The record is a 196-nucleotide RNA sequence from Panicum miliaceum, which matches "Early nodulin 40" in Rfam. NCBI's taxonomy places the organism under Eukaryota, Viridiplantae, Mesangiospermae, Poales, Panicum sect. Panicum. By type it is a non-coding RNA gene. For this family Rfam cites "Identification of conserved secondary structures and expansion segments in enod40 RNAs reveals new enod40 homologues in plants" (Gultyaev and Roussis, Nucleic Acids Res, 2007). Gene Ontology term of the family: nodulation.
RNA sequence: AUGGAGGAUGCUUGGCAGGAGCGUCUCCAUGGUUCUUGAGAGCUGAGCUGAGCUCCUCCUCAUCAAUCAUCAGUUUGUAUUUGCCCAUGCCUCUCAUGGCCUUCUUCCCUGGCUUCCAGUUCCAGAUGGCUCGGUGAGGCGUGGACAGAAACCGGCAAGUCAGAAAUCGGCAAUGGUGAGCUCCCACAGGAGCCUA
Numbered sequence: 001a002u003g004g005a006g007g008a009u010g011c012u013u014g015g016c017a018g019g020a021g022c023g024u025c026u027c028c029a030u031g032g033u034u035c036u037u038g039a040g041a042g043c044u045g046a047g048c049u050g051a052g053c054u055c056c057u058c059c060u061c062a063u064c065a066a067u068c069a070u071c072a073g074u075u076u077g078u079a080u081u082u083g084c085c086c087a088u089g090c091c092u093c094u095c096a097u098g099g100c101c102u103u104c105u106u107c108c109c110u111g112g113c114u115u116c117c118a119g120u121u122c123c124a125g126a127u128g129g130c131u132c133g134g135u136g137a138g139g140c141g142u143g144g145a146c147a148g149a150a151a152c153c154g155g156c157a158a159g160u161c162a163g164a165a166a167u168c169g170g171c172a173a174u175g176g177u178g179a180g181c182u183c184c185c186a187c188a189g190g191a192g193c194c195u196a
Stems, first nucleotide, its partner, number of pairs: 051060002073152004077146002090139003180193004